[Rfam]
RNA sequence: AAAAAUCCCCAUUAAAACAGUAGUCCCCCAACCAGGAGCAACUUUGUCAUAUUCGGAAUUU
Number, nucleotide and partner (000 for none) at each position: 001a000002a000003a000004a000005a000006u000007c000008c000009c000010c000011a000012u000013u000014a000015a000016a000017a045018c000019a043020g042021u041022a000023g039024u038025c000026c036027c035028c000029c000030a000031a000032c000033c000034a000035g027036g026037a000038g024039c023040a000041a021042c020043u019044u000045u017046g000047u000048c000049a000050u000051a000052u000053u000054c000055g000056g000057a000058a000059u000060u000061u000
RNA: Plastid-psbN 5UTR RNA